U5 spliceosomal RNA: a 126-nucleotide sequence from Rhipicephalus microplus.
RNA sequence: UUGUUCAGGUCCUUCCUCAGCUAGUCGAAUCAAUCUUUCGCCUUUUACUAAAGAUUGCCGUGGGGAAGGACAAUUAAAUGAGCCUAUAGGCAAAUUUUUGUGAGGCCUUGCCCGUUUGGGUGAGGC
Numbered sequence: 001u002u003g004u005u006c007a008g009g010u011c012c013u014u015c016c017u018c019a020g021c022u023a024g025u026c027g028a029a030u031c032a033a034u035c036u037u038u039c040g041c042c043u044u045u046u047a048c049u050a051a052a053g054a055u056u057g058c059c060g061u062g063g064g065g066a067a068g069g070a071c072a073a074u075u076a077a078a079u080g081a082g083c084c085u086a087u088a089g090g091c092a093a094a095u096u097u098u099u100g101u102g103a104g105g106c107c108u109u110g111c112c113c114g115u116u117u118g119g120g121u122g123a124g125g126c
Base pairs, nucleotide, nucleotide: 003083004082005081006080009071010070011069012068013067014066015065016064017063018062019061031057032056033055034054035053036052037051038050102126106125107124108123109122110121111120
A search with the family's covariance model found it, with a score of 85 bits. It is annotated as a spliceosomal small nuclear RNA. U5 RNA is a component of both types of known spliceosome. The literature on the family includes a 1997 paper in Nucleic Acids Res by Zwieb, "The uRNA database". The base pairs follow the family's consensus structure, which is taken from published work. The organism belongs to Boophilus, within Eukaryota.